[Rfam]
A member of the RNA family "RNase MRP" from Cajanus cajan, 246 nucleotides long. The family's RNA type in Rfam is ribozyme. The organism belongs to Cajanus, within Eukaryota. The match comes from Rfam's covariance-model search (57 bits).

RNA sequence: GGAUUAUGAGGCAUUGUGAGUGGGCCUACGCAGUUUACUGGACUCAGGAAAGUCCCCGGGCGAUGGCUGCAGAGAUGCAGGCUCGGUCACGAGUAUUUACGAGCUGGGACUUGUUUCGUUCGCUAGAGCGAGUGGCUGAGACCCGUGUGGAGCCAUUGCAAGUCCUGUGACGUAUAAAUUGGCCGAUAUCACAGUCAUUCUCAAGGUCCUAUUGACUAACAUAACGGGGCUUAUGCCCUCGUGAUC
Number, nucleotide and partner (000 for none) at each position: 001g000002g246003a245004u244005u243006a242007u241008g240009a239010g238011g237012c000013a000014u204015u203016g202017u000018g200019a199020g000021u000022g045023g044024g043025c041026c040027u000028a000029c000030g000031c000032a000033g000034u000035u000036u000037a000038c000039u000040g026041g025042a000043c024044u023045c022046a000047g000048g000049a000050a232051a231052g230053u000054c229055c228056c227057c226058g000059g000060g000061c000062g000063a000064u000065g000066g000067c000068u079069g078070c077071a076072g000073a000074g000075a000076u071077g070078c069079a068080g105081g104082c103083u102084c101085g100086g000087u000088c000089a000090c000091g000092a000093g000094u000095a000096u000097u000098u000099a000100c085101g084102a083103g082104c081105u080106g000107g175108g000109a173110c000111u000112u000113g171114u170115u169116u000117c167118g166119u000120u000121c000122g163123c162124u161125a000126g000127a000128g000129c000130g000131a000132g000133u155134g154135g153136c152137u000138g000139a000140g000141a000142c000143c000144c000145g000146u000147g000148u000149g000150g000151a000152g136153c135154c134155a133156u000157u000158g000159c000160a000161a124162g123163u122164c000165c000166u118167g117168u000169g115170a114171c113172g000173u109174a000175u107176a000177a000178a000179u000180u000181g000182g000183c000184c000185g000186a000187u000188a000189u000190c000191a000192c000193a000194g000195u000196c000197a000198u000199u019200c018201u000202c016203a015204a014205g000206g216207u215208c214209c000210u000211a000212u000213u000214g208215a207216c206217u000218a000219a000220c000221a000222u000223a000224a000225c000226g057227g056228g055229g054230c052231u051232u050233a000234u000235g000236c000237c011238c010239u009240c008241g007242u006243g005244a004245u003246c002